Rfam assigns this 81-nucleotide RNA sequence from Canis lupus to the family "Small nucleolar RNA SNORD115".
The organism belongs to Canis lupus, within Eukaryota.
RNA sequence: GGGUCAGUGAUGAGAAUUCAUAUUGUCUCGAAGAGAGAUGAGGACUUAAAAAUCAUGCUCAAUAGGAUUAUGCUGAGGCCC
Numbered sequence: 001g002g003g004u005c006a007g008u009g010a011u012g013a014g015a016a017u018u019c020a021u022a023u024u025g026u027c028u029c030g031a032a033g034a035g036a037g038a039u040g041a042g043g044a045c046u047u048a049a050a051a052a053u054c055a056u057g058c059u060c061a062a063u064a065g066g067a068u069u070a071u072g073c074u075g076a077g078g079c080c081c
Stems, first nucleotide, its partner, number of pairs: 001081004005075002008072002